A member of the RNA family "Epstein-Barr virus stable intronic sequence RNA 2" from Anas platyrhynchos, 78 nucleotides long.
Taxonomically the source falls in Anas (Eukaryota, Chordata, Sarcopterygii, Amniota).
It scores 45 bits against the family's covariance model.
The family's RNA type in Rfam is non-coding RNA gene.
Nucleotides: 078
Base pairs, nucleotide, nucleotide: 001078002077003076004075005074006073007072008071009070011068012067016063017062018061019060020059021058022057023056024055025054026053027052028051029050030049032047033046034045035044036043
Number, partner (000 for none) and nucleotide at each position: 001078g002077g003076a004075g005074g006073a007072g008071g009070c010000c011068u012067c013000g014000g015000a016063g017062g018061a019060g020059g021058a022057u023056c024055g025054a026053g027052c028051a029050g030049a031000u032047c033046c034045c035044u036043u037000u038000a039000u040000a041000u042000a043036a044035a045034g046033g047032g048000a049030u050029c051028u052027g053026c054025u055024c056023g057022a058021u059020c060019c061018u062017c063016c064000u065000c066000c067012g068011a069000g070009g071008c072007c073006u074005c075004c076003u077002c078001c